RNA sequence: GACCAGUGUUGAGAGACAGAGAAGUGGGUAAUUGCUGGCUUUCCUGGAGGGCAUUGCACUUGUCUUUGUCUGAUGGUGCCGGCC
Numbered sequence: 001g002a003c004c005a006g007u008g009u010u011g012a013g014a015g016a017c018a019g020a021g022a023a024g025u026g027g028g029u030a031a032u033u034g035c036u037g038g039c040u041u042u043c044c045u046g047g048a049g050g051g052c053a054u055u056g057c058a059c060u061u062g063u064c065u066u067u068g069u070c071u072g073a074u075g076g077u078g079c080c081g082g083c084c
Stems, first nucleotide, its partner, number of pairs: 001084001003082002006079004014071004019066004028057005034052003